A member of the RNA family "DUF805b RNA" from Chitinophaga pinensis, 37 nucleotides long.
Rfam's curators put it in the seed alignment.
It is annotated as a cis-regulatory element.
The base pairs follow the family's consensus structure, which is taken from published work.

RNA sequence: UAUGGGUAUGCCGAAAACCAUCAGAAAAGAGUAGGCA
Numbered sequence: 001u002a003u004g005g006g007u008a009u010g011c012c013g014a015a016a017a018c019c020a021u022c023a024g025a026a027a028a029g030a031g032u033a034g035g036c037a
Base pairs, nucleotide, nucleotide: 002021003020004019005018010036011035012034